[Rfam]
RNA sequence: AGCUUUUUGAAUCCGUGCUGAGAUUUCGUCAGACACUCACCCAUUAAUCUGAUCAGACUUCCAAGAUGAGUGAAGUU
Number, nucleotide and partner (000 for none) at each position: 001a000002g076003c075004u074005u073006u072007u000008u070009g000010a000011a067012u066013c065014c000015g000016u063017g062018c000019u000020g060021a059022g058023a000024u057025u056026u055027c000028g053029u052030c051031a000032g000033a000034c000035a000036c000037u000038c000039a000040c000041c000042c000043a000044u000045u000046a000047a000048u000049c000050u000051g030052a029053u028054c000055a026056g025057a024058c022059u021060u020061c000062c017063a016064a000065g013066a012067u011068g000069a000070g008071u000072g006073a005074a004075g003076u002077u000
The family of this 77-nucleotide RNA sequence from Schistosoma haematobium is "mir-3492 microRNA precursor family". Lineage of the source: Eukaryota > Eumetazoa > Protostomia > Rhabditophora > Schistosoma. The family has 2 seed sequences and 21,496 matches in Rfam 15.1. Gene Ontology terms of the family: RISC complex and miRNA-mediated post-transcriptional gene silencing. The base pairs follow the family's consensus structure, which was predicted with RNAalifold.